[Rfam]
RNA sequence: AGGGGAAGCCUCCAAAAGGAUCGCAUGAUCCGUCGAGAAGUCCUUGUAGAGGACGACCAGCCAUGAAAGAAUGGAAGGAAUGAUGGAUCAAUGCGAUCCCUUUGGAUGCUUCCUC
Numbered sequence: 001a002g003g004g005g006a007a008g009c010c011u012c013c014a015a016a017a018g019g020a021u022c023g024c025a026u027g028a029u030c031c032g033u034c035g036a037g038a039a040g041u042c043c044u045u046g047u048a049g050a051g052g053a054c055g056a057c058c059a060g061c062c063a064u065g066a067a068a069g070a071a072u073g074g075a076a077g078g079a080a081u082g083a084u085g086g087a088u089c090a091a092u093g094c095g096a097u098c099c100c101u102u103u104g105g106a107u108g109c110u111u112c113c114u115c
Base pairs, nucleotide, nucleotide: 002115003114004113005112006111008109009108011106012105013104014103015102016101018099019098020097021096023094024093025092026090027089028088029087030086031085032084033083034082035081
The record is a 115-nucleotide RNA from Miscanthus lutarioriparius, which matches "mir-393 microRNA precursor family" in Rfam. The match comes from Rfam's covariance-model search (60 bits). A reference for the family is Kruszka et al. (2012), "Role of microRNAs and other sRNAs of plants in their changing environments", J Plant Physiol. Lineage of the source: Eukaryota > commelinids > Poaceae > Panicoideae > Miscanthus. Gene Ontology terms of the family: RISC complex and miRNA-mediated post-transcriptional gene silencing.